Tymovirus/Pomovirus/Furovirus tRNA-like 3' UTR element: an 86-nucleotide RNA from Furovirus tritici. Rfam links the family to the GO term regulation of translation.
Nucleotides: 086
Stems, first nucleotide, its partner, number of pairs: 005019005012051001020040007045059004060074003067082005
Number, partner (000 for none) and nucleotide at each position: 001000a002000g003000g004000a005019g006018c007017g008016a009015c010000u011000a012051g013000g014000g015009g016008u017007c018006g019005c020040g021039g022038u023037u024036g025035c026034u027000a028000a029000g030000a031000c032000a033000c034026a035025g036024c037023a038022a039021u040020c041000a042000a043000g044000a045059g046058g047057g048056g049000u050000g051012c052000a053000a054000a055000u056048c057047c058046c059045c060074c061073c062072c063000u064000g065000a066000a067082c068081c069080g070079g071078a072062g073061g074060g075000u076000u077000a078071u079070c080069c081068g082067g083000c084000c085000c086000a
Lineage of the source: Viruses > Riboviria > Kitrinoviricota > Martellivirales > Furovirus tritici. About the family: This family represents a tRNA-like structure found in the 3' UTR of Tymoviruses, Pomoviruses and Furovirus. The literature on the family includes a 2004 paper in Virology by Matsuda and Dreher, "The tRNA-like structure of Turnip yellow mosaic virus RNA is a 3'-translational enhancer". Rfam 15.1 lists 38 matches to the family in 28 species. It is annotated as a cis-regulatory element.